RNA sequence: AGCCUCAUUCUAGAUGGAAAUGGACACUGUUGUUCAUGGUGUCCAGAAAUUGUUAAUAUAGCUACAUUGAGACACAAGUUAUGCUUCUAUCACUGGCAGCGGUGACAAUGAGACCUAUAAUGUUU
Number, nucleotide and partner (000 for none) at each position: 001a000002g062003c061004c000005u000006c000007a057008u056009u000010c000011u000012a000013g000014a000015u000016g000017g000018a000019a000020a000021u045022g044023g043024a042025c041026a040027c039028u000029g000030u000031u000032g000033u000034u000035c000036a000037u000038g000039g027040u026041g025042u024043c023044c022045a021046g000047a000048a000049a000050u000051u000052g000053u000054u000055a000056a008057u007058a000059u000060a000061g003062c002063u000064a000065c000066a000067u000068u000069g000070a000071g000072a000073c000074a118075c000076a116077a000078g114079u000080u000081a000082u000083g000084c000085u000086u000087c000088u104089a103090u102091c101092a000093c099094u000095g000096g000097c000098a000099g093100c000101g091102g090103u089104g088105a000106c000107a000108a000109u000110g000111a000112g000113a000114c078115c000116u076117a000118u074119a000120a000121u000122g000123u000124u000125u000
Source information: The record is a 125-nucleotide sequence from Puma concolor, which matches "Small nucleolar RNA SNORA1" in Rfam. ACA1 is a member of the H/ACA class of snoRNA that guide the sites of modification of uridines to pseudouridines. The family's consensus secondary structure was predicted with PFOLD. The match comes from Rfam's covariance-model search (101 bits).